Source information
Shown here is a 116-nucleotide sequence from Tepidibacter thalassicus, a member of the family "FMN riboswitch aptamer (RFN element)".
RNA sequence: GAUAAUCUUCAGGGCAGGGUGAAAUUCCCGACCGGCGGUUAUAGCCCGCGAGCCGUUUUGGCAGACUUGGUGUAAUUCCAAGGCCGACAGUAAAGUCUGGAUGGAAGAAGAUUAGG
Numbered sequence: 001g002a003u004a005a006u007c008u009u010c011a012g013g014g015c016a017g018g019g020u021g022a023a024a025u026u027c028c029c030g031a032c033c034g035g036c037g038g039u040u041a042u043a044g045c046c047c048g049c050g051a052g053c054c055g056u057u058u059u060g061g062c063a064g065a066c067u068u069g070g071u072g073u074a075a076u077u078c079c080a081a082g083g084c085c086g087a088c089a090g091u092a093a094a095g096u097c098u099g100g101a102u103g104g105a106a107g108a109a110g111a112u113u114a115g116g
Stems, first nucleotide, its partner, number of pairs: 003114008017029003031096002033086002035049004044084002052062003066082005088099003
The literature on the family includes a 2002 paper in Nucleic Acids Res by Vitreschak et al., "Regulation of riboflavin biosynthesis and transport genes in bacteria by transcriptional and translational attenuation". The match comes from Rfam's covariance-model search (129 bits). The base pairs follow the family's consensus structure, which is taken from published work.